[Rfam]
RNA sequence: GACGCUUCAUGACAGGAAGGACUGAAAUGUCUCGUGUUCGCCUGAUCUUUCCCUGAUGAUCUCGCGGC
Numbered sequence: 001g002a003c004g005c006u007u008c009a010u011g012a013c014a015g016g017a018a019g020g021a022c023u024g025a026a027a028u029g030u031c032u033c034g035u036g037u038u039c040g041c042c043u044g045a046u047c048u049u050u051c052c053c054u055g056a057u058g059a060u061c062u063c064g065c066g067g068c
Stems, first nucleotide, its partner, number of pairs: 001068001003066003015052007023044001029042001031040001
A member of the RNA family "Selenocysteine insertion sequence 1" from Saimiri boliviensis, 68 nucleotides long. Rfam 15.1 lists 3,793 matches to the family in 721 species. Lineage of the source: Eukaryota > Opisthokonta > Bilateria > Vertebrata > Saimiri boliviensis. Pairs were carried over by alignment from the consensus structure, which is taken from published work. About the family: The incorporation of selenocysteine into a protein sequence is directed by an in-frame UGA codon (usually a stop codon) within the coding region of the mRNA. Selenoprotein mRNAs contain a conserved secondary structure in the 3' UTR that is required for the distinction of UGA stop from UGA selenocysteine. The selenocysteine insertion sequence (SECIS) is around 60 nt in length and adopts a hairpin structure which is sufficiently well-defined and conserved to act as a computational screen for selenoprotein genes.